[Rfam]
RNA sequence: GAUCCACUGUGAUGAAUAAAAAAAAUUUACAUGUUAGACUAUGGAGAUGUCAAUUAGACAUCAAUGAAUAUCAACAGUUCUCUGAGUGGAUC
Numbered sequence: 001g002a003u004c005c006a007c008u009g010u011g012a013u014g015a016a017u018a019a020a021a022a023a024a025a026u027u028u029a030c031a032u033g034u035u036a037g038a039c040u041a042u043g044g045a046g047a048u049g050u051c052a053a054u055u056a057g058a059c060a061u062c063a064a065u066g067a068a069u070a071u072c073a074a075c076a077g078u079u080c081u082c083u084g085a086g087u088g089g090a091u092c
Base pairs, nucleotide, nucleotide: 001092002091003090004089005088006087007086046062047061048060049059050058051057
RNA: Small nucleolar RNA R64/Z200 family